Description:
Shown here is a 173-nucleotide RNA, a member of the family "Group II catalytic intron D1-D4-3". The base pairs follow the family's consensus structure.

RNA sequence: UUUACCGUGAGGCAAGCAGUGAAGGAAGCGAGACUACAAAACCCGGUACUGACGAACAGAAACCGAAUAUGAGGCAUAUAUACUUGGGUGAGCAAGCACACCAUUGCUAAGCCCUAAGUUUACAAAAAGGGUAUAUAUGUAGAUUCGGCAGGUAUUGGAGGAAGGAAAAUGCU
Number, nucleotide and partner (000 for none) at each position: 001u016002u015003u014004a000005c012006c011007g000008u000009g000010a000011g006012g005013c000014a003015a002016g001017c000018a000019g000020u000021g000022a000023a000024g000025g000026a000027a000028g000029c000030g172031a000032g170033a000034c000035u000036a000037c165038a000039a000040a000041a000042c000043c158044c157045g156046g155047u000048a000049c151050u150051g149052a000053c000054g000055a000056a000057c000058a000059g000060a000061a000062a000063c148064c147065g146066a145067a144068u143069a000070u000071g000072a000073g000074g140075c139076a000077u137078a136079u135080a134081u133082a132083c131084u000085u000086g114087g113088g112089u111090g000091a000092g107093c106094a105095a104096g000097c000098a000099c000100a000101c000102c000103a000104u095105u094106g093107c092108u000109a000110a000111g089112c088113c087114c086115u000116a000117a000118g000119u000120u000121u000122a000123c000124a000125a000126a000127a000128a000129g000130g000131g083132u082133a081134u080135a079136u078137a077138u000139g075140u074141a000142g000143a068144u067145u066146c065147g064148g063149c051150a050151g049152g000153u000154a000155u046156u045157g044158g043159a000160g000161g000162a000163a000164g000165g037166a000167a000168a000169a000170u032171g000172c030173u000
Gene Ontology term of the family: Group II intron splicing.